Rfam assigns this 125-nucleotide sequence from Brassica oleracea to the family "MIR9563 microRNA precursor family". A search with the family's covariance model found it, with a score of 108 bits. Its family is annotated with RISC complex and miRNA-mediated post-transcriptional gene silencing in the Gene Ontology. The base pairs follow the family's consensus structure, which was predicted with RNAalifold. The family has 2 seed sequences and 5,832 matches in Rfam 15.1.

[Rfam]
RNA sequence: GGAAGUUAAGAAACUGUUUCUUAACUUUUAACUAAAAAGGCUAAGAACCCGUUCUUAGCGUUCUUAUUUAAGAACCGGUUCUUACCAUUUUUAGUUAAAAAUUAAGAAACAGUUUCUUAACUUCC
Numbered sequence: 001g002g003a004a005g006u007u008a009a010g011a012a013a014c015u016g017u018u019u020c021u022u023a024a025c026u027u028u029u030a031a032c033u034a035a036a037a038a039g040g041c042u043a044a045g046a047a048c049c050c051g052u053u054c055u056u057a058g059c060g061u062u063c064u065u066a067u068u069u070a071a072g073a074a075c076c077g078g079u080u081c082u083u084a085c086c087a088u089u090u091u092u093a094g095u096u097a098a099a100a101a102u103u104a105a106g107a108a109a110c111a112g113u114u115u116c117u118u119a120a121c122u123u124c125c
Base pairs, nucleotide, nucleotide: 001125002124003123004122005121006120007119008118009117010116011115012114013113014112015111016110017109018108019107020106021105022104023103024102026100027099028098029097030096031095032094033093034092035091036090037089038088042084043083044082045081046080047079